[Rfam]
RNA sequence: UGAACUGGUCGAAGGACCCGGGUUCAACUUAAUUAGGCGGGCAGACUGACC
Numbered sequence: 001u002g003a004a005c006u007g008g009u010c011g012a013a014g015g016a017c018c019c020g021g022g023u024u025c026a027a028c029u030u031a032a033u034u035a036g037g038c039g040g041g042c043a044g045a046c047u048g049a050c051c
Base pairs, nucleotide, nucleotide: 001026002025003024004023005022006021007018008017009016010015
About this RNA
The record is a 51-nucleotide RNA sequence, which matches "DUF3800-XI RNA" in Rfam. The base pairs follow the family's consensus structure, which is taken from published work. From the family's description: Actinobacteria, Firmicutes, Proteobacteria, Spirochaetes (1 example). It is one of the family's seed sequences. The family's RNA type in Rfam is small RNA.